This 170-nucleotide RNA sequence from Oryza sativa belongs to the Rfam family "MIR2118 microRNA precursor family". The source organism's lineage runs through Eukaryota, Streptophytina, commelinids, Poales and Oryza sativa. For this family Rfam cites "Characterization and expression profiles of miRNAs in rice seeds" (Xue et al., Nucleic Acids Res, 2009). Rfam's curators put it in the seed alignment. Rfam 15.1 lists 2,377 matches to the family in 45 species.
RNA sequence: GCAGGGAAGAGGAAGAAAGAGAGCCUCUAAGAGCGAUGGGAAUAGGAACAUGGAGGAAAGCCUGAAGCUAAAUUUUCUACUCCAGUAUCGGAGUUAGAAAUUUGCUCUGCGUUUUCCCGAUGCCUCCUAUUCCUACCGAUCUUAGGUACUCCUUCCUCUUCCUUUAAGCU
Number, nucleotide and partner (000 for none) at each position: 001g000002c000003a000004g000005g000006g000007a000008a000009g161010a160011g159012g158013a157014a000015g155016a154017a153018a000019g000020a000021g151022a150023g149024c000025c000026u146027c145028u144029a143030a142031g141032a140033g000034c138035g137036a000037u135038g134039g133040g132041a131042a130043u129044a128045g127046g126047a125048a000049c122050a121051u120052g000053g118054a000055g117056g116057a115058a114059a113060g112061c111062c000063u000064g000065a000066a000067g000068c000069u000070a000071a000072a000073u000074u000075u000076u000077c000078u000079a000080c000081u000082c000083c000084a000085g000086u000087a000088u000089c000090g000091g000092a000093g000094u000095u000096a000097g000098a000099a000100a000101u000102u000103u000104g000105c000106u000107c000108u000109g000110c000111g061112u060113u059114u058115u057116c056117c055118c053119g000120a051121u050122g049123c000124c000125u047126c046127c045128u044129a043130u042131u041132c040133c039134u038135a037136c000137c035138g034139a000140u032141c031142u030143u029144a028145g027146g026147u000148a000149c023150u022151c021152c000153u017154u016155c015156c000157u013158c012159u011160u010161c009162c000163u000164u000165u000166a000167a000168g000169c000170u000